[Rfam]
RNA sequence: GCCCCCGGGAAACCGCGGCGGGGGAGCGAGCGGCGAGCUGUGAGCCCGCUUCGCUCCCCGGGGGUACA
Numbered sequence: 001g002c003c004c005c006c007g008g009g010a011a012a013c014c015g016c017g018g019c020g021g022g023g024g025a026g027c028g029a030g031c032g033g034c035g036a037g038c039u040g041u042g043a044g045c046c047c048g049c050u051u052c053g054c055u056c057c058c059c060g061g062g063g064g065u066a067c068a
Stems, first nucleotide, its partner, number of pairs: 001065009017050006026038002030034001
Pab160 RNA: a 68-nucleotide RNA sequence from Pyrococcus furiosus. Taxonomically the source falls in Pyrococcus furiosus (Archaea, Thermococci, Thermococcaceae, Pyrococcus). Its family is annotated with RNA processing in the Gene Ontology. By type it is an H/ACA-box small nucleolar RNA. A reference for the family is Muller et al. (2008), "Combined in silico and experimental identification of the Pyrococcus abyssi H/ACA sRNAs and their target sites in ribosomal RNAs", Nucleic Acids Res. Rfam's curators write: By using various computational and experimental approaches in three Pyrococcus genomes seven H/ACA sRNAs and 15 pseudouridine resides on rRNA were identified. One H/ACA motif was shown to guide up to three distinct pseudouridylations. The pairing is the family consensus, mapped onto this sequence.